[Rfam]
This 66-nucleotide RNA sequence from Plasmodium ovale belongs to the Rfam family "Selenocysteine insertion sequence 5". Rfam links the family to the GO term selenocysteine incorporation. Rfam classes the family as a cis-regulatory element. Pairs were carried over by alignment from the consensus structure, which was predicted with WAR.
RNA sequence: AGUGAACUAAUGACGAGUUAUUCCGAAAUCCCCCCAAUGGGAAGGAAUAAAUCUGACAUGUUCACA
Numbered sequence: 001a002g003u004g005a006a007c008u009a010a011u012g013a014c015g016a017g018u019u020a021u022u023c024c025g026a027a028a029u030c031c032c033c034c035c036a037a038u039g040g041g042a043a044g045g046a047a048u049a050a051a052u053c054u055g056a057c058a059u060g061u062u063c064a065c066a
Base pairs, nucleotide, nucleotide: 002065003064004063005062006061007060015053016052018050019049020048021047022046023045024044029042030041031040